[Rfam]
RNA sequence: AUACCUUUCUCGGCCUUUUGGCUAAGAUCAAGUGUAGUAUCUGUUCUUAUCAGUUUAAUAUCUAAUAUCUGAUAUGUGAUUCAAUGGAUCACACGAUAUUAAAUUACUUUUUUAAGGGAGAGAGUCUGCUAAAGUAGCUUGCUACUUGGGCUCUUGAGUGUCGCUCAUGCGUUGCACUAUUGCAUGGACUGGCGCAUUCCAC
Numbered sequence: 001a002u003a004c005c006u007u008u009c010u011c012g013g014c015c016u017u018u019u020g021g022c023u024a025a026g027a028u029c030a031a032g033u034g035u036a037g038u039a040u041c042u043g044u045u046c047u048u049a050u051c052a053g054u055u056u057a058a059u060a061u062c063u064a065a066u067a068u069c070u071g072a073u074a075u076g077u078g079a080u081u082c083a084a085u086g087g088a089u090c091a092c093a094c095g096a097u098a099u100u101a102a103a104u105u106a107c108u109u110u111u112u113u114a115a116g117g118g119a120g121a122g123a124g125u126c127u128g129c130u131a132a133a134g135u136a137g138c139u140u141g142c143u144a145c146u147u148g149g150g151c152u153c154u155u156g157a158g159u160g161u162c163g164c165u166c167a168u169g170c171g172u173u174g175c176a177c178u179a180u181u182g183c184a185u186g187g188a189c190u191g192g193c194g195c196a197u198u199c200c201a202c
Base pairs, nucleotide, nucleotide: 008027009026010025012023013022014021015020048074049073050072051071052070053069076092077091078090079089080088081087082086120155121154122153123152124151125150126149127148134145135144136143137142158195159194160193161192162191163190165187166186167185168184169183170182
RNA: U2 spliceosomal RNA